[Rfam]
RNA sequence: AUGCGAUGAGUCGAUUUGGUCUUUAAGACCAUUUUCGCUGGGAGGUCAUUAACGCAGGAGCGGACCUUGAUAGUCUGUGUGAACCUUUCUAUCACACUUUAUAAGUGCCCUUGAGCCUAGGUGGAAACCUAGGCUUUUUA
Dot-bracket structure: ............((.(.(((((...)))))).)).....(((((((......(((....))).))))((((((...............))))))((((.....)))))))...(((((((((....))))))))).....
RNA: MarS sRNA
Organism: Streptococcus downei